[Rfam]
RNA sequence: CCCACCACUCACGUGGUGGGCUAUCUCGUUCCGAGCCUGUGGCACU
Numbered sequence: 001c002c003c004a005c006c007a008c009u010c011a012c013g014u015g016g017u018g019g020g021c022u023a024u025c026u027c028g029u030u031c032c033g034a035g036c037c038u039g040u041g042g043c044a045c046u
Stems, first nucleotide, its partner, number of pairs: 001020008033045001035043003

A member of the RNA family "Acido-Lenti-1 RNA" from Candidatus Korobacter versatilis, 46 nucleotides long. The source organism's lineage runs through Bacteria, Terriglobia, Terriglobales, Candidatus Korobacter and Candidatus Korobacter versatilis.